[Rfam]
RNA sequence: GAACUAGAUGAUCCUUGAGGUCACUUCCAACCUUACCAUUCUAUGAACUUCAGAAAGUUGGAGACUCCCUCAGGAACUUUCUUGUUUUUAC
Dot-bracket structure: .(((.((....((((.((((....(((((.............................)))))....)))))))).....)).))).....
Vault RNA: a 91-nucleotide RNA sequence from Semnornis frantzii. A search with the family's covariance model found it, with a score of 37 bits. By type it is a non-coding RNA gene. Taxonomically the source falls in Semnornis (Eukaryota, Opisthokonta, Eumetazoa, Amniota).